[Rfam]
RNA sequence: GAUUAUGCGUUAGGGAUUGCAGCGGCAUCCUUUUUAAACUUCUUGAAGACAAUUUGAUUAAGAACUUUAAUAUUUAAGAUUGCCACGUUGCAUACUCCCCACAAUGAGGUCAUUUUAAAAAGAUAUAGCGGAAAGCCCGACCCGAC
Numbered sequence: 001g002a003u004u005a006u007g008c009g010u011u012a013g014g015g016a017u018u019g020c021a022g023c024g025g026c027a028u029c030c031u032u033u034u035u036a037a038a039c040u041u042c043u044u045g046a047a048g049a050c051a052a053u054u055u056g057a058u059u060a061a062g063a064a065c066u067u068u069a070a071u072a073u074u075u076a077a078g079a080u081u082g083c084c085a086c087g088u089u090g091c092a093u094a095c096u097c098c099c100c101a102c103a104a105u106g107a108g109g110u111c112a113u114u115u116u117a118a119a120a121a122g123a124u125a126u127a128g129c130g131g132a133a134a135g136c137c138c139g140a141c142c143c144g145a146c
Stems, first nucleotide, its partner, number of pairs: 013138003017134002022129002027124003033119006040112001
Dot-bracket structure: ............(((.((...((...(((...((((((.(.......................................................................).))))))..)))...))...)).)))........
RNA: Flavo-1 RNA